[Rfam]
RNA sequence: AGCUGUCCAAAGGUAGUGAGUUAUCUCAAUUGAUUGUUCCCAGUCAAUUACAUAUCAAACUCCUUCUUCUACUCUUUCCCCGCUUCUCACCACUGCACUUGACUAGCUUUAA
Dot-bracket structure: (((((((.((..((.(((((......................(..(.......................)..)............)))))....))..)))).)))))....
Y RNA: a 112-nucleotide RNA from Theropithecus gelada. Rfam classes the family as a non-coding RNA gene. About the family: Y RNAs are components of the Ro ribonucleoprotein particle (Ro RNP), in association with Ro60 and La proteins. The Y RNAs and Ro60 and La proteins are well conserved, but the function of the Ro RNP is not known. A reference for the family is Dhahbi et al. (2013), "5'-YRNA fragments derived by processing of transcripts from specific YRNA genes and pseudogenes are abundant in human serum and plasma", Physiol Genomics. Taxonomically the source falls in Theropithecus (Eukaryota, Opisthokonta, Dipnotetrapodomorpha, Eutheria). The family's consensus secondary structure is taken from published work.